[Rfam]
RNA sequence: UUCAUAUGGCGUAUGAAUGUGACCUUCAUCACUUCAAACUUGCCUCUUCAGCCAGUAUCAUCAGGAGAGUUAAACCCUCGCUGCCAGACGGCGAGGGUUUUCUUUUGGA
Numbered sequence: 001u002u003c004a005u006a007u008g009g010c011g012u013a014u015g016a017a018u019g020u021g022a023c024c025u026u027c028a029u030c031a032c033u034u035c036a037a038a039c040u041u042g043c044c045u046c047u048u049c050a051g052c053c054a055g056u057a058u059c060a061u062c063a064g065g066a067g068a069g070u071u072a073a074a075c076c077c078u079c080g081c082u083g084c085c086a087g088a089c090g091g092c093g094a095g096g097g098u099u100u101u102c103u104u105u106u107g108g109a
Stems, first nucleotide, its partner, number of pairs: 015035003019032004072100012
A member of the RNA family "Enterobacteria rnk leader" from Enterobacter cancerogenus, 109 nucleotides long.
The source organism's lineage runs through Bacteria, Pseudomonadota, Gammaproteobacteria, Enterobacter cloacae complex and Enterobacter cancerogenus.
It is one of the family's seed sequences.
It is annotated as a cis-regulatory leader.